The family of this 385-nucleotide RNA sequence from Kocuria soli is "Bacterial RNase P class A". Lineage of the source: Bacteria > Actinomycetota > Micrococcales > Micrococcaceae > Kocuria. Rfam classes the family as a ribozyme. On this family, see Beauregard et al., RNA Biol 2013: "Identification and characterization of small RNAs in Yersinia pestis". Rfam describes the family as follows. Ribonuclease P (RNase P) is a ubiquitous endoribonuclease, found in archaea, bacteria and eukarya as well as chloroplasts and mitochondria.
RNA sequence: CAGGACGGCCGGGUGACCGCGCGACGCCGGACAACCGGCGUCGCGAGGAAAGUCCGGACUCCGCAGAGCAGGACGGUGGGUAACGCCCACUCGGGGUGACCCGCAGGAAAGUGCCACAGAAAACAGACCGCCCGCGGCGAUUCGUCGUCGUGGGUCAGGGUGAAAAGGUGGGGUAAGAGCCCACCAGCACACCGGGUGACCGGUGUGGCUCGGUAAACCCCGUCCGGAGCAAGGUCAGACAGGACACGUUGGAGGGCUGCUCGCCCGAGUGUCCGGGUAGGCCGCUCGAGCCCAUCGGCAACGGUGGGCCUAGAUGGAUGGUCACCGCCGCGUCCCGGGCAACCGGGCGUGUGCCCAGAAUCCGGCUCAUAGGCCGUCCUGUCCC
Dot-bracket structure: ((((((((((((((((((.(((((((((........))))))))).....[[.[[[[[((((...[[[[.((((((((((.....)))))(((((....)))).)((...(((((............(((((((((((((....)))))))))))..)).......((((((.......)))))).(((((((((....)))))))).)..)))..)))))))))))))...((((.....((((((......((((.]]]]))))..)))))).....))))......((((((((....))))))))..........)))))))..................................]]]]]]]..).))))))))))....
Numbered sequence: 001c002a003g004g005a006c007g008g009c010c011g012g013g014u015g016a017c018c019g020c021g022c023g024a025c026g027c028c029g030g031a032c033a034a035c036c037g038g039c040g041u042c043g044c045g046a047g048g049a050a051a052g053u054c055c056g057g058a059c060u061c062c063g064c065a066g067a068g069c070a071g072g073a074c075g076g077u078g079g080g081u082a083a084c085g086c087c088c089a090c091u092c093g094g095g096g097u098g099a100c101c102c103g104c105a106g107g108a109a110a111g112u113g114c115c116a117c118a119g120a121a122a123a124c125a126g127a128c129c130g131c132c133c134g135c136g137g138c139g140a141u142u143c144g145u146c147g148u149c150g151u152g153g154g155u156c157a158g159g160g161u162g163a164a165a166a167g168g169u170g171g172g173g174u175a176a177g178a179g180c181c182c183a184c185c186a187g188c189a190c191a192c193c194g195g196g197u198g199a200c201c202g203g204u205g206u207g208g209c210u211c212g213g214u215a216a217a218c219c220c221c222g223u224c225c226g227g228a229g230c231a232a233g234g235u236c237a238g239a240c241a242g243g244a245c246a247c248g249u250u251g252g253a254g255g256g257c258u259g260c261u262c263g264c265c266c267g268a269g270u271g272u273c274c275g276g277g278u279a280g281g282c283c284g285c286u287c288g289a290g291c292c293c294a295u296c297g298g299c300a301a302c303g304g305u306g307g308g309c310c311u312a313g314a315u316g317g318a319u320g321g322u323c324a325c326c327g328c329c330g331c332g333u334c335c336c337g338g339g340c341a342a343c344c345g346g347g348c349g350u351g352u353g354c355c356c357a358g359a360a361u362c363c364g365g366c367u368c369a370u371a372g373g374c375c376g377u378c379c380u381g382u383c384c385c
Stems, first nucleotide, its partner, number of pairs: 001381010011370001012326007020045009051367002054365005059229004066262004071225005076090005091105001092103004106220002111218002113214003128159002130155011167185006187209001188207008233283004242274006254266004290309008